[Rfam]
RNA sequence: GGAAGGAUGGCCGAGUGGUUUAAGGCAACGGUCUUGAAAACCGUCGAGUGUAACAGCUCCCAGAGUUCGAAUCUCCGUCCUUCCG
Numbered sequence: 001g002g003a004a005g006g007a008u009g010g011c012c013g014a015g016u017g018g019u020u021u022a023a024g025g026c027a028a029c030g031g032u033c034u035u036g037a038a039a040a041c042c043g044u045c046g047a048g049u050g051u052a053a054c055a056g057c058u059c060c061c062a063g064a065g066u067u068c069g070a071a072u073c074u075c076c077g078u079c080c081u082u083c084c085g
Stems, first nucleotide, its partner, number of pairs: 001084007010026003028044005061077001063075003
Rfam assigns this 85-nucleotide sequence from Serratia symbiotica to the family "tRNA". The source organism's lineage runs through Bacteria, Pseudomonadati, Pseudomonadota, Serratia and Serratia symbiotica. The base pairs follow the family's consensus structure, which is taken from published work. The match comes from Rfam's covariance-model search (54 bits).